[Rfam]
Nucleotides: 142
Base pairs, nucleotide, nucleotide: 020052021051023049024048026047027046028045034042035041086118087117088116089114090113091112093110094109095108096107097106131142132141133140134139
Number, partner (000 for none) and nucleotide at each position: 001000a002000g003000c004000u005000u006000u007000g008000u009000g010000c011000a012000g013000u014000g015000g016000c017000a018000g019000u020052a021051u022000c023049g024048u025000a026047g027046c028045c029000a030000a031000u032000g033000a034042g035041g036000u037000u038000u039000a040000u041035c042034u043000g044000a045028g046027g047026u048024g049023c050000a051021a052020u053000a054000u055000a056000u057000u058000g059000c060000u061000a062000a063000u064000c065000g066000a067000a068000a069000a070000c071000u072000u073000u074000u075000c076000c077000c078000a079000a080000u081000a082000c083000c084000c085000u086118g087117c088116u089114a090113u091112g092000a093110u094109g095108a096107c097106u098000u099000g100000a101000a102000a103000u104000a105000u106097a107096g108095u109094u110093g111000g112091c113090a114089u115000u116088g117087g118086c119000a120000a121000u122000u123000u124000u125000u126000g127000a128000u129000a130000g131142u132141c133140u134139c135000u136000a137000u138000g139134g140133a141132g142131a
This 142-nucleotide RNA sequence from Carlito syrichta belongs to the Rfam family "U4 spliceosomal RNA". Its family is annotated with spliceosomal tri-snRNP complex assembly and U4 snRNP in the Gene Ontology. The base pairs follow the family's consensus structure, which is taken from published work.